Source information: The record is a 296-nucleotide RNA sequence from Furnarius figulus, which matches "Metazoan signal recognition particle RNA" in Rfam. The family's consensus secondary structure is taken from published work. For this family Rfam cites "Towards the structure of the mammalian signal recognition particle" (Wild et al., Curr Opin Struct Biol, 2002). Its family is annotated with SRP-dependent cotranslational protein targeting to membrane, signal sequence recognition and signal recognition particle, endoplasmic reticulum targeting in the Gene Ontology. Rfam describes the family as follows. The signal recognition particle (SRP) is a universally conserved ribonucleoprotein. By type it is a non-coding RNA gene.
RNA sequence: ACCUGGCAUCCAGGUGGCGCGUGCCUGUAGUCCCAGCUGCUGGGGAGGCUGAGCCCGAUGGAUCCCUUGAGCCCAGGAGUUCUGGGCUGCAGGGCGCUGUGCUGAGCAGGUGUCCAAGCCAACAUCAUUUUGGUGAUCUGUGGGGGAGCUGCAGGUCACCAGGUUGGCUAAGGAAGGAUGAACUGACUCAGAUUGGAGAUGGAGCAGGUCAAAGCUCCCAUGGUGGUCAGUAGCGGGAUCACACCUGUGAACAGGCCCUGCAGCAUCCUGGUCAUCACAGAGUCACAUGGACUCCU
Numbered sequence: 001a002c003c004u005g006g007c008a009u010c011c012a013g014g015u016g017g018c019g020c021g022u023g024c025c026u027g028u029a030g031u032c033c034c035a036g037c038u039g040c041u042g043g044g045g046a047g048g049c050u051g052a053g054c055c056c057g058a059u060g061g062a063u064c065c066c067u068u069g070a071g072c073c074c075a076g077g078a079g080u081u082c083u084g085g086g087c088u089g090c091a092g093g094g095c096g097c098u099g100u101g102c103u104g105a106g107c108a109g110g111u112g113u114c115c116a117a118g119c120c121a122a123c124a125u126c127a128u129u130u131u132g133g134u135g136a137u138c139u140g141u142g143g144g145g146g147a148g149c150u151g152c153a154g155g156u157c158a159c160c161a162g163g164u165u166g167g168c169u170a171a172g173g174a175a176g177g178a179u180g181a182a183c184u185g186a187c188u189c190a191g192a193u194u195g196g197a198g199a200u201g202g203a204g205c206a207g208g209u210c211a212a213a214g215c216u217c218c219c220a221u222g223g224u225g226g227u228c229a230g231u232a233g234c235g236g237g238a239u240c241a242c243a244c245c246u247g248u249g250a251a252c253a254g255g256c257c258c259u260g261c262a263g264c265a266u267c268c269u270g271g272u273c274a275u276c277a278c279a280g281a282g283u284c285a286c287a288u289g290g291a292c293u294c295c296u
Stems, first nucleotide, its partner, number of pairs: 002048002005025005011019001031046003051294003055290003064282001066280002069275001071273001073271005083265002087263008097254004102249001106248008114237002118234002121224001123222003126166002129163015168172001176217002179214001184211005193202003